[Rfam]
RNA: permuted transfer-messenger RNA
RNA sequence: GGACAUAAACGCGCAUGUAAUACACGGAUCGGACCCGGGGGCGGUACCCGGCGGCUCCACCAAUCAUCCUAUCGUUUGGGAUCUUGGGGCCGAAAUAGGAUCGACGAACGUUUAAAGAUGUAAGCUUUGUCUCGGUGAGCUACCACCGUUAUCGGUGCGAAACGUACAGUUGCAAACGACAACCGUGCUCCGGUGGCUCUUGCUGCGUAA
Numbered sequence: 001g002g003a004c005a006u007a008a009a010c011g012c013g014c015a016u017g018u019a020a021u022a023c024a025c026g027g028a029u030c031g032g033a034c035c036c037g038g039g040g041g042c043g044g045u046a047c048c049c050g051g052c053g054g055c056u057c058c059a060c061c062a063a064u065c066a067u068c069c070u071a072u073c074g075u076u077u078g079g080g081a082u083c084u085u086g087g088g089g090c091c092g093a094a095a096u097a098g099g100a101u102c103g104a105c106g107a108a109c110g111u112u113u114a115a116a117g118a119u120g121u122a123a124g125c126u127u128u129g130u131c132u133c134g135g136u137g138a139g140c141u142a143c144c145a146c147c148g149u150u151a152u153c154g155g156u157g158c159g160a161a162a163c164g165u166a167c168a169g170u171u172g173c174a175a176a177c178g179a180c181a182a183c184c185g186u187g188c189u190c191c192g193g194u195g196g197c198u199c200u201u202g203c204u205g206c207g208u209a210a
Stems, first nucleotide, its partner, number of pairs: 001132005013121004025110002029107003035051005052092007133148004